[Rfam]
RNA: Bacterial large subunit ribosomal RNA, nucleotides 2053 to 2637
Organism: Sulfobacillus acidophilus
RNA sequence: CUGGCGACUGGACAGAAAGACCCCGUGGAGCUUGACUGUAGCCUGCUAUGGGUCGGUUGGGGCGCGUGUACAGGAUAGGUGGGAGGCAGAGAAGCCGCCGCGUCAGCGGCGGGGGAGCCAUCCUUGGGAUACCACCCUCGCGCCCGGACCGGUCUAACCGUCGACGCAACCCGUCGCGGGACAGUGGCAGGGGGGCAGUUUGACUGGGGCGGUCGCCUCCUAAAGGGUAACGGAGGCGCCCCAUGGUUCCCUCAGCACGGUUGGACAUCGUGCCGGGCGUGCAAAGGCACAAGGGAGCUUGACUGCAAGCGGGACACCGCGCGCAGGGCCGAAAGGCGGGCUUAGUGAUCCGGUGGCUCCGAGUGGCAGGGCCAUCGCGCAACGGACAAAAGCUACCCCGGGGAUAACAGGCUGAUCUUCCCCAAGAGUCCAUAUCGACGGGAAGGUUUGGCACCUCGAUGUCGGCUCAUCGCAUCCUGGGGCUGGAGUCGGUCCCAAGGGUUGGGCUGUUCGCCCAUUAAAGCGGUACGUGAGCUGGGUUCAGAACGUCGUGAGACAGUUCGGUCCCUAUCCGUCGUCAGCGAA
Numbered sequence: 001c002u003g004g005c006g007a008c009u010g011g012a013c014a015g016a017a018a019g020a021c022c023c024c025g026u027g028g029a030g031c032u033u034g035a036c037u038g039u040a041g042c043c044u045g046c047u048a049u050g051g052g053u054c055g056g057u058u059g060g061g062g063c064g065c066g067u068g069u070a071c072a073g074g075a076u077a078g079g080u081g082g083g084a085g086g087c088a089g090a091g092a093a094g095c096c097g098c099c100g101c102g103u104c105a106g107c108g109g110c111g112g113g114g115g116a117g118c119c120a121u122c123c124u125u126g127g128g129a130u131a132c133c134a135c136c137c138u139c140g141c142g143c144c145c146g147g148a149c150c151g152g153u154c155u156a157a158c159c160g161u162c163g164a165c166g167c168a169a170c171c172c173g174u175c176g177c178g179g180g181a182c183a184g185u186g187g188c189a190g191g192g193g194g195g196c197a198g199u200u201u202g203a204c205u206g207g208g209g210c211g212g213u214c215g216c217c218u219c220c221u222a223a224a225g226g227g228u229a230a231c232g233g234a235g236g237c238g239c240c241c242c243a244u245g246g247u248u249c250c251c252u253c254a255g256c257a258c259g260g261u262u263g264g265a266c267a268u269c270g271u272g273c274c275g276g277g278c279g280u281g282c283a284a285a286g287g288c289a290c291a292a293g294g295g296a297g298c299u300u301g302a303c304u305g306c307a308a309g310c311g312g313g314a315c316a317c318c319g320c321g322c323g324c325a326g327g328g329c330c331g332a333a334a335g336g337c338g339g340g341c342u343u344a345g346u347g348a349u350c351c352g353g354u355g356g357c358u359c360c361g362a363g364u365g366g367c368a369g370g371g372c373c374a375u376c377g378c379g380c381a382a383c384g385g386a387c388a389a390a391a392g393c394u395a396c397c398c399c400g401g402g403g404a405u406a407a408c409a410g411g412c413u414g415a416u417c418u419u420c421c422c423c424a425a426g427a428g429u430c431c432a433u434a435u436c437g438a439c440g441g442g443a444a445g446g447u448u449u450g451g452c453a454c455c456u457c458g459a460u461g462u463c464g465g466c467u468c469a470u471c472g473c474a475u476c477c478u479g480g481g482g483c484u485g486g487a488g489u490c491g492g493u494c495c496c497a498a499g500g501g502u503u504g505g506g507c508u509g510u511u512c513g514c515c516c517a518u519u520a521a522a523g524c525g526g527u528a529c530g531u532g533a534g535c536u537g538g539g540u541u542c543a544g545a546a547c548g549u550c551g552u553g554a555g556a557c558a559g560u561u562c563g564g565u566c567c568c569u570a571u572c573c574g575u576c577g578u579c580a581g582c583g584a585a
Stems, first nucleotide, its partner, number of pairs: 001581008010573003015567001022402004027398002029394005035199004042191007051154008060145007068137001078136005085119003095112007158179003162176005202214004215237006238383001240340002246298006253277001255273006279288002303326004309320003328337003351377007359370002411452003415449001416446007426436002463538001464536004468530001469527005476501002479496006503517005544562004548557003